[Rfam]
Shown here is a 200-nucleotide RNA sequence from Streptomyces lonarensis, a member of the family "Actinobacteria sRNA Ms_IGR-5". It is annotated as a small RNA. A reference for the family is Li et al. (2013), "Identification of small RNAs in Mycobacterium smegmatis using heterologous Hfq", RNA. It scores 81 bits against the family's covariance model.

RNA sequence: ACACGAGAAGGGAGGUGGUUCGGCAGAUGAUCAAGAACCGGACGCGUGAGGUGACUGCGGCCUGAGGCCGUCGUCCCACGUCAGUGCGGAUGCCGGCGUCGCCGGCCAAUCCCGAGCAGUCACCCGACCCGCGGGCCGCCGGUGUCGUCCGGCCGGCUCCUCUGCCUCGGCAGGGGACCAAGGCCCGCGGGUCGUCUGCG
Numbered sequence: 001a002c003a004c005g006a007g008a009a010g011g012g013a014g015g016u017g018g019u020u021c022g023g024c025a026g027a028u029g030a031u032c033a034a035g036a037a038c039c040g041g042a043c044g045c046g047u048g049a050g051g052u053g054a055c056u057g058c059g060g061c062c063u064g065a066g067g068c069c070g071u072c073g074u075c076c077c078a079c080g081u082c083a084g085u086g087c088g089g090a091u092g093c094c095g096g097c098g099u100c101g102c103c104g105g106c107c108a109a110u111c112c113c114g115a116g117c118a119g120u121c122a123c124c125c126g127a128c129c130c131g132c133g134g135g136c137c138g139c140c141g142g143u144g145u146c147g148u149c150c151g152g153c154c155g156g157c158u159c160c161u162c163u164g165c166c167u168c169g170g171c172a173g174g175g176g177a178c179c180a181a182g183g184c185c186c187g188c189g190g191g192u193c194g195u196c197u198g199c200g
Base pairs, nucleotide, nucleotide: 015058016057017056018055019054059107060106061105062104064102067097068096069095070094072092073091074090125194126193127192128191129190130189131188132187133186134185135184136183137182138157139156140155141154142153143152
Dot-bracket structure: ..............(((((..................................)))))((((.(..((((.(((...............))).))))....).)))).................(((((((((((((((((((........))))))........................)))))))))))))......